[Rfam]
RNA sequence: GGUGAAAAUGAUGAAUGCCGAGGCGCUGAUUCUUGUGACUUGAAAGACGCCAUCCAUUUCCUGAUUUGCC
Numbered sequence: 001g002g003u004g005a006a007a008a009u010g011a012u013g014a015a016u017g018c019c020g021a022g023g024c025g026c027u028g029a030u031u032c033u034u035g036u037g038a039c040u041u042g043a044a045a046g047a048c049g050c051c052a053u054c055c056a057u058u059u060c061c062u063g064a065u066u067u068g069c070c
Stems, first nucleotide, its partner, number of pairs: 001070006
The record is a 70-nucleotide RNA from Jaculus jaculus, which matches "Small nucleolar RNA SNORD123" in Rfam. It is annotated as a C/D-box small nucleolar RNA. Rfam 15.1 lists 518 matches to the family in 509 species. The organism belongs to Jaculus, within Eukaryota. Pairs were carried over by alignment from the consensus structure, which was predicted with WAR. A search with the family's covariance model found it, with a score of 80 bits.